Overview:
Rfam assigns this 96-nucleotide sequence from Nicotiana attenuata to the family "MIR6152 microRNA precursor family". The source organism's lineage runs through Eukaryota, Streptophyta, Solanales, Nicotianoideae and Nicotiana.

[Rfam]
RNA sequence: UAGACAGAUUAUUGUAUUCGACUAUAUUCACGGUGUAGAAUACGGGAUUACACUAUUUUUAAAUGAAAAGUGAAUCAAUUAACAUAAUAGACUCCU
Numbered sequence: 001u002a003g004a005c006a007g008a009u010u011a012u013u014g015u016a017u018u019c020g021a022c023u024a025u026a027u028u029c030a031c032g033g034u035g036u037a038g039a040a041u042a043c044g045g046g047a048u049u050a051c052a053c054u055a056u057u058u059u060u061a062a063a064u065g066a067a068a069a070g071u072g073a074a075u076c077a078a079u080u081a082a083c084a085u086a087a088u089a090g091a092c093u094c095c096u
Stems, first nucleotide, its partner, number of pairs: 003094002009090007017082002020080002023077001026075006034065003037059006